[Rfam]
RNA sequence: GAGAAAGUAUGAUCGACUAAGUUCGUCACGUCCUGUGACACCGUCGAUCUGACCCACGUCGUGUGGG
Numbered sequence: 001g002a003g004a005a006a007g008u009a010u011g012a013u014c015g016a017c018u019a020a021g022u023u024c025g026u027c028a029c030g031u032c033c034u035g036u037g038a039c040a041c042c043g044u045c046g047a048u049c050u051g052a053c054c055c056a057c058g059u060c061g062u063g064u065g066g067g
Stems, first nucleotide, its partner, number of pairs: 011049007025039005053067005
A member of the RNA family "Bacillaceae-1 RNA" from Pontibacillus marinus, 67 nucleotides long. NCBI's taxonomy places the organism under Bacteria, Bacillota, Caryophanales, Bacillaceae, Pontibacillus marinus. The family's consensus secondary structure is taken from published work.